[Rfam]
RNA sequence: GCGCGUCUGCCGAGAGAGCGCACUCCUGGUGCCGCCGAAGGGGCAAGGGUCGGUCCAGCCGGAACCGACACCGAAACUCUCAGGCAGAAAGGAUCGGCAGAGGCGC
Numbered sequence: 001g002c003g004c005g006u007c008u009g010c011c012g013a014g015a016g017a018g019c020g021c022a023c024u025c026c027u028g029g030u031g032c033c034g035c036c037g038a039a040g041g042g043g044c045a046a047g048g049g050u051c052g053g054u055c056c057a058g059c060c061g062g063a064a065c066c067g068a069c070a071c072c073g074a075a076a077c078u079c080u081c082a083g084g085c086a087g088a089a090a091g092g093a094u095c096g097g098c099a100g101a102g103g104c105g106c
Stems, first nucleotide, its partner, number of pairs: 006101008020032004034085003037081002041079003047072002
RNA: Glycine riboswitch aptamer